[Rfam]
RNA: MIR159 microRNA precursor family
RNA sequence: AGUAAUUAAAGGGAGCUCCCUUCAGUCCAAUAAUGGAAAAGAAUUGGGUGAAAUUUGACUCCCGCCUCAUUCACACAUUCAUAGUAGCAACGUUUCUUGUCUACUAUGUUUGCAUCAAUGAAUCGGCAGCAAAUUCAACCCUCUUCGCAUCUCCGUGACUGGGCUGAAGGAAGCUCCCUUCAAAUGACCA
Numbered sequence: 001a002g003u004a005a006u007u008a009a010a011g012g013g014a015g016c017u018c019c020c021u022u023c024a025g026u027c028c029a030a031u032a033a034u035g036g037a038a039a040a041g042a043a044u045u046g047g048g049u050g051a052a053a054u055u056u057g058a059c060u061c062c063c064g065c066c067u068c069a070u071u072c073a074c075a076c077a078u079u080c081a082u083a084g085u086a087g088c089a090a091c092g093u094u095u096c097u098u099g100u101c102u103a104c105u106a107u108g109u110u111u112g113c114a115u116c117a118a119u120g121a122a123u124c125g126g127c128a129g130c131a132a133a134u135u136c137a138a139c140c141c142u143c144u145u146c147g148c149a150u151c152u153c154c155g156u157g158a159c160u161g162g163g164c165u166g167a168a169g170g171a172a173g174c175u176c177c178c179u180u181c182a183a184a185u186g187a188c189c190a
Base pairs, nucleotide, nucleotide: 013176014175015174016173017172019170020169023166024165025164026163027162028161029160036153059129060128062126063125064124068120069119070118071117076112